[Rfam]
RNA sequence: CGCGCAUAAGGUGAUGGCGUUCCACCUUUCCCAACCGCCUGCAGGCGUAACCUGCGGCUGAUGACGCCUGACAUUAU
Dot-bracket structure: .........[[[[..((((((.]]]]..........(((................)))....)))))).........
Numbered sequence: 001c002g003c004g005c006a007u008a009a010g011g012u013g014a015u016g017g018c019g020u021u022c023c024a025c026c027u028u029u030c031c032c033a034a035c036c037g038c039c040u041g042c043a044g045g046c047g048u049a050a051c052c053u054g055c056g057g058c059u060g061a062u063g064a065c066g067c068c069u070g071a072c073a074u075u076a077u
Stems, first nucleotide, its partner, number of pairs: 010026004016068006037058003

This 77-nucleotide sequence from Pantoea ananatis belongs to the Rfam family "Fluoride riboswitch aptamer (crcB RNA motif)". Pairs were carried over by alignment from the consensus structure, which is taken from published work. It scores 45 bits against the family's covariance model.